This 457-nucleotide RNA from Providencia stuartii belongs to the Rfam family "cspA thermoregulator". The literature on the family includes a 2010 paper in Mol Cell by Giuliodori et al., "The cspA mRNA is a thermosensor that modulates translation of the cold-shock protein CspA". The organism belongs to Providencia, within Bacteria. The match comes from Rfam's covariance-model search (244 bits). The family has 15 seed sequences and 2,094 matches in Rfam 15.1. The base pairs follow the family's consensus structure, which is taken from published work.
RNA sequence: CUGGUUUGGUAGUACCCAUUUAUUUAUGAAAGACAAGUUAAAGCAGUUCCCUAUUAAGUGUUAUCCAUGAUACCUUCAUUGUGAAUUCCUUCUAAUUUAAUUCCCAUAAGUACGUACAAAGAACAAACCUUACCCCGCCUUAUGGCAAUUUAAUAAAUUUAAAGGAAAUAACAUGUCUAAUACAAUGACUGGUACAGUAAAAUGGUUCAACAAUGAUAAAGGUUUUGGCUUUAUCUCUCCAAAAGAUGGUAGCAAAGAUGUGUUCGUACACUUCUCUGCAAUCCAAAGCAACAGCUUCAAAAGCCUGAACGAAGGUCAAGAAGUGUCUUUCUCUAUCGAGAAUGGCGCAAAAGGCCCAGCAGCAGCUAACGUGAUCCCACUGUAAGCUAAAGUUGCAACAGCGUCUAAGCGCUGUACAAAUUUGAAUAAAAGCCUCGUGUAAACGGGGCUUUUAUUU
Numbered sequence: 001c002u003g004g005u006u007u008g009g010u011a012g013u014a015c016c017c018a019u020u021u022a023u024u025u026a027u028g029a030a031a032g033a034c035a036a037g038u039u040a041a042a043g044c045a046g047u048u049c050c051c052u053a054u055u056a057a058g059u060g061u062u063a064u065c066c067a068u069g070a071u072a073c074c075u076u077c078a079u080u081g082u083g084a085a086u087u088c089c090u091u092c093u094a095a096u097u098u099a100a101u102u103c104c105c106a107u108a109a110g111u112a113c114g115u116a117c118a119a120a121g122a123a124c125a126a127a128c129c130u131u132a133c134c135c136c137g138c139c140u141u142a143u144g145g146c147a148a149u150u151u152a153a154u155a156a157a158u159u160u161a162a163a164g165g166a167a168a169u170a171a172c173a174u175g176u177c178u179a180a181u182a183c184a185a186u187g188a189c190u191g192g193u194a195c196a197g198u199a200a201a202a203u204g205g206u207u208c209a210a211c212a213a214u215g216a217u218a219a220a221g222g223u224u225u226u227g228g229c230u231u232u233a234u235c236u237c238u239c240c241a242a243a244a245g246a247u248g249g250u251a252g253c254a255a256a257g258a259u260g261u262g263u264u265c266g267u268a269c270a271c272u273u274c275u276c277u278g279c280a281a282u283c284c285a286a287a288g289c290a291a292c293a294g295c296u297u298c299a300a301a302a303g304c305c306u307g308a309a310c311g312a313a314g315g316u317c318a319a320g321a322a323g324u325g326u327c328u329u330u331c332u333c334u335a336u337c338g339a340g341a342a343u344g345g346c347g348c349a350a351a352a353g354g355c356c357c358a359g360c361a362g363c364a365g366c367u368a369a370c371g372u373g374a375u376c377c378c379a380c381u382g383u384a385a386g387c388u389a390a391a392g393u394u395g396c397a398a399c400a401g402c403g404u405c406u407a408a409g410c411g412c413u414g415u416a417c418a419a420a421u422u423u424g425a426a427u428a429a430a431a432g433c434c435u436c437g438u439g440u441a442a443a444c445g446g447g448g449c450u451u452u453u454a455u456u457u
Base pairs, nucleotide, nucleotide: 004021007018008016009015027241028240031238032237033236041232042231045230046229047228049227050222051221054219060217061216062215063214068209069208070207072206073205074204077175078174079173081172082171088165089164090163091162093161094160095159101123102122103121137146138145139144177192178191179190181188245337246336247335248334249333257265258264268326269325270324271323272322273321275320277318278317279315282309284307285306343358344357345356347355348354359383360382361381362380365376367374386422388420427454428453429452430451431450432449433448434447435446436445437444438443